[Rfam]
RNA sequence: CGUCCGGUAGCUCAGCGGAAGAGCAUCUGUCUUACAAACAGAGGGUCCCAGGUUCGAAACCUGGCCGGACGA
Numbered sequence: 001c002g003u004c005c006g007g008u009a010g011c012u013c014a015g016c017g018g019a020a021g022a023g024c025a026u027c028u029g030u031c032u033u034a035c036a037a038a039c040a041g042a043g044g045g046u047c048c049c050a051g052g053u054u055c056g057a058a059a060c061c062u063g064g065c066c067g068g069a070c071g072a
Base pairs, nucleotide, nucleotide: 001071002070003069004068005067006066007065010024011023012022013021026042027041028040029039030038048064049063050062051061052060